[Rfam]
The family of this 405-nucleotide RNA from Callithrix jacchus is "Cyp24a1 internal ribosome entry site (IRES)". Lineage of the source: Eukaryota > Opisthokonta > Eutheria > Callithrix > Callithrix. About the family: Cyp24a1 (1,25-dihydroxyvitamin D3 24-hydroxylase) expression is translationally regulated via IRES within the 5'UTR, which is responsive to an inflammatory environment.
RNA sequence: GACCGGAGGGAACGCGGCGCCAGCAGCAUCUCACCUACCCUCCUUGACAUCUCCUCCCCGUGGUUCCAGCCAGACCCUAGAAGUCAGACUUGCAGACCAACAGGAGGACUUCCAGCUUUUCCUUUCCAAGAGGUCCCCAGUCCCCGGCUGCCCUCUUCCAGCCCCUACGGCCAGCUCAAGGAGGCACCAACGCUCUGAGGCUGCCGCACGGUGCAGCGUCGAGCAUCCCUGCCGAGGUCCUUUCUGCCCUCUGUCCCGCCUCACCCCGCUCCAUCACACCAGCCGGCCCUCUUUGCCUCCCCUUCCCAGAAUCGUUAUGCGCUCGGAUCCCACCAGUGCCUGGUACCAACCUCGCCCCACCCCGUCUCCGUACCUUCCCACGCCCCGGUGUCCCCCGCUGCCAUG
Numbered sequence: 001g002a003c004c005g006g007a008g009g010g011a012a013c014g015c016g017g018c019g020c021c022a023g024c025a026g027c028a029u030c031u032c033a034c035c036u037a038c039c040c041u042c043c044u045u046g047a048c049a050u051c052u053c054c055u056c057c058c059c060g061u062g063g064u065u066c067c068a069g070c071c072a073g074a075c076c077c078u079a080g081a082a083g084u085c086a087g088a089c090u091u092g093c094a095g096a097c098c099a100a101c102a103g104g105a106g107g108a109c110u111u112c113c114a115g116c117u118u119u120u121c122c123u124u125u126c127c128a129a130g131a132g133g134u135c136c137c138c139a140g141u142c143c144c145c146g147g148c149u150g151c152c153c154u155c156u157u158c159c160a161g162c163c164c165c166u167a168c169g170g171c172c173a174g175c176u177c178a179a180g181g182a183g184g185c186a187c188c189a190a191c192g193c194u195c196u197g198a199g200g201c202u203g204c205c206g207c208a209c210g211g212u213g214c215a216g217c218g219u220c221g222a223g224c225a226u227c228c229c230u231g232c233c234g235a236g237g238u239c240c241u242u243u244c245u246g247c248c249c250u251c252u253g254u255c256c257c258g259c260c261u262c263a264c265c266c267c268g269c270u271c272c273a274u275c276a277c278a279c280c281a282g283c284c285g286g287c288c289c290u291c292u293u294u295g296c297c298u299c300c301c302c303u304u305c306c307c308a309g310a311a312u313c314g315u316u317a318u319g320c321g322c323u324c325g326g327a328u329c330c331c332a333c334c335a336g337u338g339c340c341u342g343g344u345a346c347c348a349a350c351c352u353c354g355c356c357c358c359a360c361c362c363c364g365u366c367u368c369c370g371u372a373c374c375u376u377c378c379c380a381c382g383c384c385c386c387g388g389u390g391u392c393c394c395c396c397g398c399u400g401c402c403a404u405g
Stems, first nucleotide, its partner, number of pairs: 004370005010365001014254004019250001023247004039184008050174001061173005068166002079156003083152001087148001089146001090140003095135004103125005190226001192224004197220002200217004205213003227237002230234001265286002268283003309329002312326003336355002382401002386397003